[Rfam]
RNA sequence: AUGAAUGUAUGGGGAGAGCACGCGUUAGGCGUCGCCGAAGGAGCAAACAGGAAAACUGUGAAUCUCUCAGGUAACAAGACUCAUACAGGACG
Numbered sequence: 001a002u003g004a005a006u007g008u009a010u011g012g013g014g015a016g017a018g019c020a021c022g023c024g025u026u027a028g029g030c031g032u033c034g035c036c037g038a039a040g041g042a043g044c045a046a047a048c049a050g051g052a053a054a055a056c057u058g059u060g061a062a063u064c065u066c067u068c069a070g071g072u073a074a075c076a077a078g079a080c081u082c083a084u085a086c087a088g089g090a091c092g
Stems, first nucleotide, its partner, number of pairs: 006087008020032004034072003037068002041066003047059002